[Rfam]
RNA sequence: AGGCAUUUGUGUGCGUAGCUUCUAAUCUAUGCCUAGUGGCAUGGUCCAUUUGCGUUCUGCUUAUAGACCAUGUUGCUCACAUACAACCUGCGGCCAAAGAGCAACUUGAGAUCAUAGUACUGGUCUAGUGAUGUCGAAAGACAAGCUUACUGCUGAUCAGCCUCCAAACUCUCAUACAUGU
Numbered sequence: 001a002g003g004c005a006u007u008u009g010u011g012u013g014c015g016u017a018g019c020u021u022c023u024a025a026u027c028u029a030u031g032c033c034u035a036g037u038g039g040c041a042u043g044g045u046c047c048a049u050u051u052g053c054g055u056u057c058u059g060c061u062u063a064u065a066g067a068c069c070a071u072g073u074u075g076c077u078c079a080c081a082u083a084c085a086a087c088c089u090g091c092g093g094c095c096a097a098a099g100a101g102c103a104a105c106u107u108g109a110g111a112u113c114a115u116a117g118u119a120c121u122g123g124u125c126u127a128g129u130g131a132u133g134u135c136g137a138a139a140g141a142c143a144a145g146c147u148u149a150c151u152g153c154u155g156a157u158c159a160g161c162c163u164c165c166a167a168a169c170u171c172u173c174a175u176a177c178a179u180g181u
Base pairs, nucleotide, nucleotide: 013091014090015089030083031082034079036077037075038074039073040072041071042070044068045067046066048064052060053059107174108173109172110171111170120160121159122158123157124156125155127154128153129152130151132145133142134141135140
Shown here is a 181-nucleotide RNA from Podarcis lilfordi, a member of the family "Small nucleolar RNA SNORA23".
A search with the family's covariance model found it, with a score of 112 bits.
Pairs were carried over by alignment from the consensus structure, which was predicted with RNAalifold.
Gene Ontology terms of the family: nucleolus and RNA processing.
It is annotated as an H/ACA-box small nucleolar RNA.